[Rfam]
RNA sequence: GUGUCAGCUUUAGCUCACUGGUUACUUCAAAGCAUUAAUUGAAUUGCAAGUUCUCACCGAGGGCCCUAUCUGGCGGUUUU
Numbered sequence: 001g002u003g004u005c006a007g008c009u010u011u012a013g014c015u016c017a018c019u020g021g022u023u024a025c026u027u028c029a030a031a032g033c034a035u036u037a038a039u040u041g042a043a044u045u046g047c048a049a050g051u052u053c054u055c056a057c058c059g060a061g062g063g064c065c066c067u068a069u070c071u072g073g074c075g076g077u078u079u080u
Stems, first nucleotide, its partner, number of pairs: 002075006013064004019059003026043005
This 80-nucleotide RNA from Scyliorhinus torazame belongs to the Rfam family "Vault RNA". Rfam classes the family as a non-coding RNA gene. The source organism's lineage runs through Eukaryota, Opisthokonta, Elasmobranchii, Carcharhiniformes and Scyliorhinus.